[Rfam]
RNA sequence: AAUAGUUUUAUGCCACAUCAGUAUUCUUAUCCUGAAUUUCAGGAUUUUAUCCUGAAAAAAAUCAAAUUCAAAUUAAAAUACUAAAAUUCAGAAUAAGAAUACUGAUAUGACAUAAAACUAUU
Dot-bracket structure: ((((((((((((.((.(((((((((((.((.((((((((.((..((((..........................))))..)).)))))))).)).))))))))))).)).))))))))))))